The family of this 100-nucleotide RNA sequence from Paenibacillus rigui is "Purine riboswitch aptamer". The match comes from Rfam's covariance-model search (70 bits). Taxonomically the source falls in Paenibacillus (Bacteria, Bacilli, Caryophanales, Paenibacillaceae).
[Rfam]
RNA sequence: UGAUGAGUAUGACUAGCCAUUCGUAUAUCCUUGGCAAUACGGGCCAAGGGUUUCUACAAGGAACCGAUAAUUCCUGACUACGAAGGGUGUGGAUUUCCCG
Dot-bracket structure: .................(.((((((...(((((((.......))))))).........(((((.......)))))...)))))).)..............
Numbered sequence: 001u002g003a004u005g006a007g008u009a010u011g012a013c014u015a016g017c018c019a020u021u022c023g024u025a026u027a028u029c030c031u032u033g034g035c036a037a038u039a040c041g042g043g044c045c046a047a048g049g050g051u052u053u054c055u056a057c058a059a060g061g062a063a064c065c066g067a068u069a070a071u072u073c074c075u076g077a078c079u080a081c082g083a084a085g086g087g088u089g090u091g092g093a094u095u096u097c098c099c100g
Stems, first nucleotide, its partner, number of pairs: 018086001020084006029049007059075005